Shown here is a 153-nucleotide RNA sequence from Dorea sp. AF36-15AT, a member of the family "Clostridiales-1 RNA".
The organism belongs to Dorea, within Bacteria.
The family's consensus secondary structure is taken from published work.
[Rfam]
RNA sequence: UAAUACCAGGGUAUAAAAGACAAGCCGUUCAUGCUCGCAUGAAACGGCUUGUCCUUUAUACCCGCCAAAACAUGAGGAAGAAGCCCGACAGGGCGGAAUCCGAAUGUUUUGAGGAUUGAGAGAGCGCGAAGCGCGGAGCAAUCCGAGAUGUUA
Numbered sequence: 001u002a003a004u005a006c007c008a009g010g011g012u013a014u015a016a017a018a019g020a021c022a023a024g025c026c027g028u029u030c031a032u033g034c035u036c037g038c039a040u041g042a043a044a045c046g047g048c049u050u051g052u053c054c055u056u057u058a059u060a061c062c063c064g065c066c067a068a069a070a071c072a073u074g075a076g077g078a079a080g081a082a083g084c085c086c087g088a089c090a091g092g093g094c095g096g097a098a099u100c101c102g103a104a105u106g107u108u109u110u111g112a113g114g115a116u117u118g119a120g121a122g123a124g125c126g127c128g129a130a131g132c133g134c135g136g137a138g139c140a141a142u143c144c145g146a147g148a149u150g151u152u153a
Base pairs, nucleotide, nucleotide: 001153002152003151004150005149007147010062011061012060013059016056017055019053020052021051022050023049024048025047026046027045028044029042030041031040032039033038066111067110068109069108070107071106072105073104076101077100078099083094084093085092086091113144114143115142116141117140118139124134125133126132127131